[Rfam]
RNA sequence: GUUCUAGCGCCUGGCGCCGGACUCCCAGCCAUCCCGACCUGACACCACUUCCCCGGUGUCAGGUCGGGAUGGAUGGGGAUCGGACGCCAGGGGCCGGACCGGAG
Numbered sequence: 001g002u003u004c005u006a007g008c009g010c011c012u013g014g015c016g017c018c019g020g021a022c023u024c025c026c027a028g029c030c031a032u033c034c035c036g037a038c039c040u041g042a043c044a045c046c047a048c049u050u051c052c053c054c055g056g057u058g059u060c061a062g063g064u065c066g067g068g069a070u071g072g073a074u075g076g077g078g079a080u081c082g083g084a085c086g087c088c089a090g091g092g093g094c095c096g097g098a099c100c101g102g103a104g
Base pairs, nucleotide, nucleotide: 010091011090012089013088014087015086016085020081021080023078024077025076026075027074029072030071031070032069033068034067035066036065037064038063039062040061041060042059043058044057045056

Shown here is a 104-nucleotide sequence from Leifsonia xyli, a member of the family "mraW RNA". The family's RNA type in Rfam is cis-regulatory element.